[Rfam]
RNA sequence: AGGGCAGACUGAAGAAGGUGAAUUGUUACAAGCUUAUAACGGUUCACCUUCUUCAGUCUGCCCU
Numbered sequence: 001a002g003g004g005c006a007g008a009c010u011g012a013a014g015a016a017g018g019u020g021a022a023u024u025g026u027u028a029c030a031a032g033c034u035u036a037u038a039a040c041g042g043u044u045c046a047c048c049u050u051c052u053u054c055a056g057u058c059u060g061c062c063c064u
Base pairs, nucleotide, nucleotide: 002063003062004061005060006059007058008057009056010055011054012053013052015050016049017048018047019046020045021044022043023042024041025040026039028037

Rfam assigns this 64-nucleotide sequence from Nematostella vectensis to the family "mir-9447 microRNA precursor family".
The family's consensus secondary structure was predicted with RNAalifold.